[Rfam]
RNA sequence: GAAGCUGGCCAGACAGUCGCCGCCUGCCGUUCUUUUUGAACGCAGGGGGAGGAAAGUCCGGGCUCCAUAGAGCAGGAUGACGGUUAACGGCCGUCCGCCGUGAGGCGAGGAACAGGGCCACAGAGACGAGCGUAUUCAGUUACGGUGAAACGCGGUAACCUCCAUCCGGAGCAAGACCAAAUAGGCAGGCGAUGAUGUUGCUCGCAGAGCCUGCGGGUAGGUUGCUUGAAUGCACGGGUAACCGUGCGUCUAGAGGAAUGACUGUCCACGACAGAACCCGGCUUACCGGCCAGCUUCACAA
Dot-bracket structure: ((((((((((.(((((((.((.(((((..............))))).))....[[[.[[[[[((((...[[[[.((((((((((.....)))))(((((....)))).)((...(((((...........((((......)))).........)))..)))))))))))))...((((......((((((.....(((.]]]])))..)))))).....))))......((((((((....))))))))..........)))))))..........]]]]]]]]...))))))))))....
A member of the RNA family "Bacterial RNase P class A" from Nitrosomonas oligotropha, 301 nucleotides long. It scores 251 bits against the family's covariance model. Rfam classes the family as a ribozyme.